The family of this 118-nucleotide RNA sequence is "drum RNA". Rfam's curators put it in the seed alignment. About the family: Firmicutes, Bacteroidetes (1 example), Proteobacteria (2 examples), Spirochaetes (2 examples).
[Rfam]
RNA sequence: GUUCUAUGAUGUAAGAGUGCCUAUCGCAAGGUUGGCUUACGGAGGACUAGGGAAGGGUUUUGUGGUUUCCUCAAAGCGAUGUAGAUAUUGUGCACAAUAUUGAAAGAAAACACUUACA
Numbered sequence: 001g002u003u004c005u006a007u008g009a010u011g012u013a014a015g016a017g018u019g020c021c022u023a024u025c026g027c028a029a030g031g032u033u034g035g036c037u038u039a040c041g042g043a044g045g046a047c048u049a050g051g052g053a054a055g056g057g058u059u060u061u062g063u064g065g066u067u068u069c070c071u072c073a074a075a076g077c078g079a080u081g082u083a084g085a086u087a088u089u090g091u092g093c094a095c096a097a098u099a100u101u102g103a104a105a106g107a108a109a110a111c112a113c114u115u116a117c118a
Stems, first nucleotide, its partner, number of pairs: 001047004011040005019032004024079004062113003084101007